[Rfam]
RNA sequence: CGCGCAGGACGACCUGCGCCUUGUUCGUUCCGGGGACGACCCC
Numbered sequence: 001c002g003c004g005c006a007g008g009a010c011g012a013c014c015u016g017c018g019c020c021u022u023g024u025u026c027g028u029u030c031c032g033g034g035g036a037c038g039a040c041c042c043c
Stems, first nucleotide, its partner, number of pairs: 002019007032043004
RNA: Guanidine-II riboswitch aptamer (mini-ykkC)
Organism: Shinella sp. WSJ-2